The family of this 85-nucleotide RNA sequence from Dongibacter bovis is "ZMP/ZTP riboswitch aptamer (pfl RNA motif)".
It scores 56 bits against the family's covariance model.
The source organism's lineage runs through Bacteria, Bacillota, Selenomonadales, Selenomonadaceae and Dongibacter.
[Rfam]
RNA sequence: UAGGCAUUAUAGGGCUGACGGAAUCAUGUGGAGACUACCACGUGCACUAUAGUGUCAGGAACGGCCGACCGUCUGGGCAGAGAGA
Numbered sequence: 001u002a003g004g005c006a007u008u009a010u011a012g013g014g015c016u017g018a019c020g021g022a023a024u025c026a027u028g029u030g031g032a033g034a035c036u037a038c039c040a041c042g043u044g045c046a047c048u049a050u051a052g053u054g055u056c057a058g059g060a061a062c063g064g065c066c067g068a069c070c071g072u073c074u075g076g077g078c079a080g081a082g083a084g085a
Stems, first nucleotide, its partner, number of pairs: 003056010015044001017073005028041004062080001064078003